[Rfam]
RNA sequence: CCUCCAUCUGAAAGCGAAGACCCCAUGGAGUUUCACUACAACCUGUUGUUGUUGUAAGAAUUGAUAUGUGUAGCAUAGGCGGGAGACGUUACCCAGGACGGUGCGCUAGCAUCGCUCCGAGUCACCGGUGAAAUACCGCCCUUAUUAGUUUUUACGACUCACCUCUUCGGAGGAACAGCUAUAGGCAGGUAGUUCGGGUGGGGCGCCACGCCCUCGAAAAGAUAACAAGGGCGCCCAAAGGUUAGCUCAGGUAGGUCAGAAAUCUACCGAAGAAUGUAAGGGUAUAAGCUAGCUUGACUCGGAACCAGACAAUAGGGUUCGGAGAUAGGAAACUAUGGCCUAGCGAACCAAUCAACCUCCUGAAUGGGGGUGAUUGAUGUCAGAAAAAUUACCCUGGGGAUAAUUGAGUUGUCUCGAGCAAGAGUUCAUAUCGACCUCGAGGCUUGCUACUUCGCUGUCGGCUCUCCCUAUCCUGGUGGUGCAGCAGCUGCCAAGGGUGGGGUUGUUCGCCCAUUAAAAGGGAUCGUGAGCUGGGUUUAAAACGUCGCGAGACAGUUUUGUUGCUUUUUGAUGGAGGUGUA
Numbered sequence: 001c002c003u004c005c006a007u008c009u010g011a012a013a014g015c016g017a018a019g020a021c022c023c024c025a026u027g028g029a030g031u032u033u034c035a036c037u038a039c040a041a042c043c044u045g046u047u048g049u050u051g052u053u054g055u056a057a058g059a060a061u062u063g064a065u066a067u068g069u070g071u072a073g074c075a076u077a078g079g080c081g082g083g084a085g086a087c088g089u090u091a092c093c094c095a096g097g098a099c100g101g102u103g104c105g106c107u108a109g110c111a112u113c114g115c116u117c118c119g120a121g122u123c124a125c126c127g128g129u130g131a132a133a134u135a136c137c138g139c140c141c142u143u144a145u146u147a148g149u150u151u152u153u154a155c156g157a158c159u160c161a162c163c164u165c166u167u168c169g170g171a172g173g174a175a176c177a178g179c180u181a182u183a184g185g186c187a188g189g190u191a192g193u194u195c196g197g198g199u200g201g202g203g204c205g206c207c208a209c210g211c212c213c214u215c216g217a218a219a220a221g222a223u224a225a226c227a228a229g230g231g232c233g234c235c236c237a238a239a240g241g242u243u244a245g246c247u248c249a250g251g252u253a254g255g256u257c258a259g260a261a262a263u264c265u266a267c268c269g270a271a272g273a274a275u276g277u278a279a280g281g282g283u284a285u286a287a288g289c290u291a292g293c294u295u296g297a298c299u300c301g302g303a304a305c306c307a308g309a310c311a312a313u314a315g316g317g318u319u320c321g322g323a324g325a326u327a328g329g330a331a332a333c334u335a336u337g338g339c340c341u342a343g344c345g346a347a348c349c350a351a352u353c354a355a356c357c358u359c360c361u362g363a364a365u366g367g368g369g370g371u372g373a374u375u376g377a378u379g380u381c382a383g384a385a386a387a388a389u390u391a392c393c394c395u396g397g398g399g400a401u402a403a404u405u406g407a408g409u410u411g412u413c414u415c416g417a418g419c420a421a422g423a424g425u426u427c428a429u430a431u432c433g434a435c436c437u438c439g440a441g442g443c444u445u446g447c448u449a450c451u452u453c454g455c456u457g458u459c460g461g462c463u464c465u466c467c468c469u470a471u472c473c474u475g476g477u478g479g480u481g482c483a484g485c486a487g488c489u490g491c492c493a494a495g496g497g498u499g500g501g502g503u504u505g506u507u508c509g510c511c512c513a514u515u516a517a518a519a520g521g522g523a524u525c526g527u528g529a530g531c532u533g534g535g536u537u538u539a540a541a542a543c544g545u546c547g548c549g550a551g552a553c554a555g556u557u558u559u560g561u562u563g564c565u566u567u568u569u570g571a572u573g574g575a576g577g578u579g580u581a
Base pairs, nucleotide, nucleotide: 001577002576003575004574005573006572007571008570010569011568012567014564015563022398023397024396025395027394028393029390030389031388032387033386035193036192037191038190042185043184044183045182046181048179051158052157053156054155055154056153057152058151059150060149061148062147063146064145065144066143068141078140079139080138081137082136085123086122087121100113101112102111103110104109162173163172164171165170196209197207198206199205210232211231212230213229214228235338236337241293242292243291244290245289246288247273248272250268251267252266253265254264255263274283275282298324299323300322302320303319304318305317306316326335328333349376350375351374352373353372355371356370357369358368359367407448408447409446411445412442413441414440415439416438417437418436422432423431459534460532461531462530463529464526465523466522467521468520469519472497473496476491477490478489479488480487500512501511502510503509540558541557542556543555544553545552546551
Dot-bracket structure: ((((((((.(((.((......((((.(((((((.((((...(((((.(..((((((((((((((((.(.........(((((..(((............(((((....))))).......)))............)))))).))))))))))))))))...((((....)))).....).)))))....))))..((((.....))).)(((((.............)))))..((....((((((((.((((((.......))))))...))((......))....))))))....(((.(((((.........))))).))).(.(....).).))..........(((((.(((((.......)))))))))).........)))))..))))))........(((.((((((((...((.......))...)))))))..))))..........(((((((((((..((..(((((......)))))....))..((((.....))))......)))))..)..)))).).....(((((((....))).))))....))..)))))))))))....
Notes:
A member of the RNA family "Archaeal large subunit ribosomal RNA" from Candidatus Methanoplasma termitum, 581 nucleotides of a longer RNA. The match comes from Rfam's covariance-model search (2722 bits). The family's consensus secondary structure is taken from published work. Lineage of the source: Archaea > Thermoplasmatota > Thermoplasmata > Methanomassiliicoccales > Candidatus Methanoplasma.